[Rfam]
RNA: Purine riboswitch aptamer
Organism: Clostridium niameyense
RNA sequence: AAACAAGUUAUUAAAUUUGUCCAUAUAAUCUUAAUGAUAAGGAUUAAGAGUUUCUACCAGAGGCCUAUAACCUCUGACUAUGGGCGAAUCCACUUAUAAU
Numbered sequence: 001a002a003a004c005a006a007g008u009u010a011u012u013a014a015a016u017u018u019g020u021c022c023a024u025a026u027a028a029u030c031u032u033a034a035u036g037a038u039a040a041g042g043a044u045u046a047a048g049a050g051u052u053u054c055u056a057c058c059a060g061a062g063g064c065c066u067a068u069a070a071c072c073u074c075u076g077a078c079u080a081u082g083g084g085c086g087a088a089u090c091c092a093c094u095u096a097u098a099a100u
Base pairs, nucleotide, nucleotide: 018086019085020084021083022082023081024080025079029049030048031047032046033045034044035043058076059075060074061073062072063071